[Rfam]
RNA sequence: GUGUGAUAAUGGCAAACCAGUGGAAACGCUGGGACGCAAAGCCACGGGUCUACGGACGAAUGUCUAUGACAGCCGGGCUGCCACA
Numbered sequence: 001g002u003g004u005g006a007u008a009a010u011g012g013c014a015a016a017c018c019a020g021u022g023g024a025a026a027c028g029c030u031g032g033g034a035c036g037c038a039a040a041g042c043c044a045c046g047g048g049u050c051u052a053c054g055g056a057c058g059a060a061u062g063u064c065u066a067u068g069a070c071a072g073c074c075g076g077g078c079u080g081c082c083a084c085a
Base pairs, nucleotide, nucleotide: 012037013036017032018031019030020029021028022027040079041078042077043076045075046074047073048070049069050068055064056063057062